RNA sequence: UCGGAAGAGGUUCUAGCUACCCUCUCAAAAAAACUAAGGAAAA
Numbered sequence: 001u002c003g004g005a006a007g008a009g010g011u012u013c014u015a016g017c018u019a020c021c022c023u024c025u026c027a028a029a030a031a032a033a034c035u036a037a038g039g040a041a042a043a
Base pairs, nucleotide, nucleotide: 006025007024008023009022010021014036015035
Overview:
Shown here is a 43-nucleotide sequence from Bacillus sp. V5-8f, a member of the family "PreQ1 (pre queuosine) riboswitch aptamer". It scores 46 bits against the family's covariance model. From the family's description: This family is a bacterial riboswitch that binds to the metabolite preQ1, an intermediate in the biosynthesis of the modified nucleoside queuosine from GTP. One example of this riboswitch is located in the leader of the Bacillus subtilis ykvJKLM (queCDEF) operon which encodes four genes necessary for queuosine production. PreQ1 binding to the riboswitch aptamer is thought to induce premature transcription termination within the leader to down-regulate expression of these genes.